A member of the RNA family "Purine riboswitch aptamer" from Thermobacillus composti, 102 nucleotides long.
A search with the family's covariance model found it, with a score of 74 bits.
The organism belongs to Thermobacillus composti, within Bacteria.
On this family, see Mandal et al., Cell 2003: "Riboswitches Control Fundamental Biochemical Pathways in Bacillus subtilis and Other Bacteria".
Its family is annotated with purine nucleobase biosynthetic process in the Gene Ontology.
RNA sequence: GUGAAAAUCGGAAAAGCUUUUCGUAUAAUCCCGGGAAUCUGGCUUGGGAGUCUCUACAAGGUCACCGUAAAUGAUCUUGCUACGAAAAGCAGGGGAGUCGUC
Numbered sequence: 001g002u003g004a005a006a007a008u009c010g011g012a013a014a015a016g017c018u019u020u021u022c023g024u025a026u027a028a029u030c031c032c033g034g035g036a037a038u039c040u041g042g043c044u045u046g047g048g049a050g051u052c053u054c055u056a057c058a059a060g061g062u063c064a065c066c067g068u069a070a071a072u073g074a075u076c077u078u079g080c081u082a083c084g085a086a087a088a089g090c091a092g093g094g095g096a097g098u099c100g101u102c
Stems, first nucleotide, its partner, number of pairs: 018088008029049007058078007